[Rfam]
RNA: tRNA
Organism: Phellinidium pouzarii
RNA sequence: GAUCCCUUAGCUCAGUUGGUUUAGAGCUUUGUACUUAUGUGGUUAUCCUAGUCUUAUGCUAUGCAAGGGUCCCGAGUUCGAGUCUCGGAGGGAUCA
Numbered sequence: 001g002a003u004c005c006c007u008u009a010g011c012u013c014a015g016u017u018g019g020u021u022u023a024g025a026g027c028u029u030u031g032u033a034c035u036u037a038u039g040u041g042g043u044u045a046u047c048c049u050a051g052u053c054u055u056a057u058g059c060u061a062u063g064c065a066a067g068g069g070u071c072c073c074g075a076g077u078u079c080g081a082g083u084c085u086c087g088g089a090g091g092g093a094u095c096a
Stems, first nucleotide, its partner, number of pairs: 001095007010027004029066005072088005